[Rfam]
RNA sequence: AUCACUUGUGAGCUGAGACUACAGAGCGGGGGAUUUCCUAUGGGGUGAAUCGCAAGUGAUUGCGUAGGGCUUUACACCUUGAUGCCCGAAUCCGUCAACUAACCUCGUAAGCAAAGAAAGGUGGAUUC
Numbered sequence: 001a002u003c004a005c006u007u008g009u010g011a012g013c014u015g016a017g018a019c020u021a022c023a024g025a026g027c028g029g030g031g032g033a034u035u036u037c038c039u040a041u042g043g044g045g046u047g048a049a050u051c052g053c054a055a056g057u058g059a060u061u062g063c064g065u066a067g068g069g070c071u072u073u074a075c076a077c078c079u080u081g082a083u084g085c086c087c088g089a090a091u092c093c094g095u096c097a098a099c100u101a102a103c104c105u106c107g108u109a110a111g112c113a114a115a116g117a118a119a120g121g122u123g124g125a126u127u128c
Stems, first nucleotide, its partner, number of pairs: 012112003019024001026108006036042001043093003051064004067087004

This 128-nucleotide RNA sequence from Desulfitobacterium metallireducens belongs to the Rfam family "c-di-AMP riboswitch aptamer (ydaO/yuaA leader)". Taxonomically the source falls in Desulfitobacterium metallireducens (Bacteria, Bacillati, Bacillota, Desulfitobacteriaceae). Rfam 15.1 lists 7,607 matches to the family in 2,262 species. The match comes from Rfam's covariance-model search (76 bits).